[Rfam]
RNA sequence: ACGUGGUUCUACUGUUUGAGUAUCCUGAAAACGGGCUUUUCAGAUCAGUAUUACCCCAAAAUUUUUAGGAGUGCAUAGUGGCCCGUAUAGCAGGCAUUAACAUUCCUGAU
Dot-bracket structure: ....(((..((((..........[[[.....[[[[....{{{....))))..)))..........................]]]]......]]]............}}}.